[Rfam]
RNA sequence: CAUUACGACAUGCCGAAUUUCCUAUCCAGUAGGAAAACGGGGGAACCAUUUCUGGGGUGAAUCCGCGUUAUGCGGUAGGGAUUUCCCUUUGUCCCGAACCCGUCAGCUAACCUCGUAGGCAUUUAGAAAGGGGUGUU
Numbered sequence: 001c002a003u004u005a006c007g008a009c010a011u012g013c014c015g016a017a018u019u020u021c022c023u024a025u026c027c028a029g030u031a032g033g034a035a036a037a038c039g040g041g042g043g044a045a046c047c048a049u050u051u052c053u054g055g056g057g058u059g060a061a062u063c064c065g066c067g068u069u070a071u072g073c074g075g076u077a078g079g080g081a082u083u084u085c086c087c088u089u090u091g092u093c094c095c096g097a098a099c100c101c102g103u104c105a106g107c108u109a110a111c112c113u114c115g116u117a118g119g120c121a122u123u124u125a126g127a128a129a130g131g132g133g134u135g136u137u
Stems, first nucleotide, its partner, number of pairs: 011121004018036007037116006047054002055101003063075004078095004

Rfam assigns this 137-nucleotide RNA from Sporomusa malonica to the family "c-di-AMP riboswitch aptamer (ydaO/yuaA leader)".
NCBI's taxonomy places the organism under Bacteria, Bacillota, Negativicutes, Sporomusaceae, Sporomusa.